SAM-I/IV (S-adenosyl methionine) riboswitch aptamer: a 100-nucleotide RNA from Microvirga aerophila. The literature on the family includes a 2008 paper in RNA by Weinberg et al., "The aptamer core of SAM-IV riboswitches mimics the ligand-binding site of SAM-I riboswitches". Its Rfam clan is "SAM clan". Rfam links the family to the GO terms regulation of gene expression and S-adenosylmethionine metabolic process.
RNA sequence: CUCCUGCAUCCCGAGAGGGCCUGAUGGCCCCGCCAACCAGCUUUGACCAGCAACGGUGGCACAGACGAUGCGGCCCGCAGGGGCAGCAAUAGGUCUUCUC
Numbered sequence: 001c002u003c004c005u006g007c008a009u010c011c012c013g014a015g016a017g018g019g020c021c022u023g024a025u026g027g028c029c030c031c032g033c034c035a036a037c038c039a040g041c042u043u044u045g046a047c048c049a050g051c052a053a054c055g056g057u058g059g060c061a062c063a064g065a066c067g068a069u070g071c072g073g074c075c076c077g078c079a080g081g082g083g084c085a086g087c088a089a090u091a092g093g094u095c096u097u098c099u100c
Stems, first nucleotide, its partner, number of pairs: 006071005015031001017030005032060003037056002040051003045095004073084004